This 127-nucleotide RNA sequence from Achromobacter sp. AONIH1 belongs to the Rfam family "SAH (S-adenosyl-L-homocysteine) riboswitch aptamer".
A search with the family's covariance model found it, with a score of 50 bits.
RNA sequence: GAUCCUGAGGAGCGUUGCGACGAUCCGGCUGUUCCCCUUGCGCGGAACACGGCUCGCCAGGCUCAGGAAUCCCUGUUCAUGCGUCCCGCAUCCUUGCGCGGCGCUACAGCAACGGCGCUCACCUUUG
Numbered sequence: 001g002a003u004c005c006u007g008a009g010g011a012g013c014g015u016u017g018c019g020a021c022g023a024u025c026c027g028g029c030u031g032u033u034c035c036c037c038u039u040g041c042g043c044g045g046a047a048c049a050c051g052g053c054u055c056g057c058c059a060g061g062c063u064c065a066g067g068a069a070u071c072c073c074u075g076u077u078c079a080u081g082c083g084u085c086c087c088g089c090a091u092c093c094u095u096g097c098g099c100g101g102c103g104c105u106a107c108a109g110c111a112a113c114g115g116c117g118c119u120c121a122c123c124u125u126u127g
Stems, first nucleotide, its partner, number of pairs: 003068006021056003025052002
The base pairs follow the family's consensus structure, which is taken from published work. A reference for the family is Wang et al. (2008), "Riboswitches that sense S-adenosylhomocysteine and activate genes involved in coenzyme recycling", Mol Cell.